RNA sequence: UGACCAUUCCUUAUGUUUAAGGAAUUAGUGCCAUGCGGACAGCCGGGUCAAAUGCCGA
Numbered sequence: 001u002g003a004c005c006a007u008u009c010c011u012u013a014u015g016u017u018u019a020a021g022g023a024a025u026u027a028g029u030g031c032c033a034u035g036c037g038g039a040c041a042g043c044c045g046g047g048u049c050a051a052a053u054g055c056c057g058a
Stems, first nucleotide, its partner, number of pairs: 001050005006025008
A member of the RNA family "Streptococcus sRNA SpF59 (ldcC RNA)", 58 nucleotides long.